[Rfam]
RNA sequence: CUUGCCAUUACAAUAGGCGGCUUCGAACCAUGUCAGGACCGGAAGGUAGCAGCAUUAAGAAUGUCCGUUUAUGUGUAGUGGCUUUUUU
Numbered sequence: 001c002u003u004g005c006c007a008u009u010a011c012a013a014u015a016g017g018c019g020g021c022u023u024c025g026a027a028c029c030a031u032g033u034c035a036g037g038a039c040c041g042g043a044a045g046g047u048a049g050c051a052g053c054a055u056u057a058a059g060a061a062u063g064u065c066c067g068u069u070u071a072u073g074u075g076u077a078g079u080g081g082c083u084u085u086u087u088u
Base pairs, nucleotide, nucleotide: 004082005081006080007079008078009077010076011073013072014071015070016069017068018067019064022061023060024059030055031054032053033052038047039046040045

The family of this 88-nucleotide RNA from Coprobacillus cateniformis is "Bacterial small signal recognition particle RNA". The organism belongs to Coprobacillus, within Bacteria. By type it is a non-coding RNA gene. For this family Rfam cites "SRPDB: Signal Recognition Particle Database" (Rosenblad et al., Nucleic Acids Res, 2003). Gene Ontology terms of the family: SRP-dependent cotranslational protein targeting to membrane, signal sequence recognition and signal recognition particle, plasma membrane targeting. About the family: The signal recognition particle (SRP) is a universally conserved ribonucleoprotein involved in the co-translational targeting of proteins to membranes. Clan: SRP clan. The base pairs follow the family's consensus structure, which is taken from published work.